[Rfam]
RNA: L31-Gammaproteobacteria ribosomal protein leader
Organism: Xenorhabdus poinarii
RNA sequence: CGUGUGGUGUCUGGCGAUAACAAGGCUGGAUAGCGACACGGCCUGAACAGAGGU
Numbered sequence: 001c002g003u004g005u006g007g008u009g010u011c012u013g014g015c016g017a018u019a020a021c022a023a024g025g026c027u028g029g030a031u032a033g034c035g036a037c038a039c040g041g042c043c044u045g046a047a048c049a050g051a052g053g054u
Stems, first nucleotide, its partner, number of pairs: 001040005007034002011029005